This 74-nucleotide RNA from Megaselia scalaris belongs to the Rfam family "mir-929 microRNA precursor family".
Its family is annotated with miRNA-mediated post-transcriptional gene silencing and RISC complex in the Gene Ontology.
[Rfam]
RNA sequence: UGGGGUCAAAUUGACUCUAGUAGGGAGUCCGUUUUUAAAUUGCGACUCCCUAACGGAGUCAGAUUGAUUCCGAU
Numbered sequence: 001u002g003g004g005g006u007c008a009a010a011u012u013g014a015c016u017c018u019a020g021u022a023g024g025g026a027g028u029c030c031g032u033u034u035u036u037a038a039a040u041u042g043c044g045a046c047u048c049c050c051u052a053a054c055g056g057a058g059u060c061a062g063a064u065u066g067a068u069u070c071c072g073a074u
Stems, first nucleotide, its partner, number of pairs: 011062008021052009
A search with the family's covariance model found it, with a score of 88 bits. A reference for the family is Marco et al. (2010), "Functional shifts in insect microRNA evolution", Genome Biol Evol. NCBI's taxonomy places the organism under Eukaryota, Ecdysozoa, Insecta, Metopininae, Megaselia.